[Rfam]
RNA sequence: GGAUCUAUGAUGACUCCAAAGAAACAUUCUUUGGAAAUCUGAACAAAAUGGGUGAAAACUCUAUACCGUCAUCCUCAUCGAAAUGAGAUCC
Numbered sequence: 001g002g003a004u005c006u007a008u009g010a011u012g013a014c015u016c017c018a019a020a021g022a023a024a025c026a027u028u029c030u031u032u033g034g035a036a037a038u039c040u041g042a043a044c045a046a047a048a049u050g051g052g053u054g055a056a057a058a059c060u061c062u063a064u065a066c067c068g069u070c071a072u073c074c075u076c077a078u079c080g081a082a083a084u085g086a087g088a089u090c091c
Stems, first nucleotide, its partner, number of pairs: 001091005025054005031046003
RNA: Small nucleolar RNA SNORD116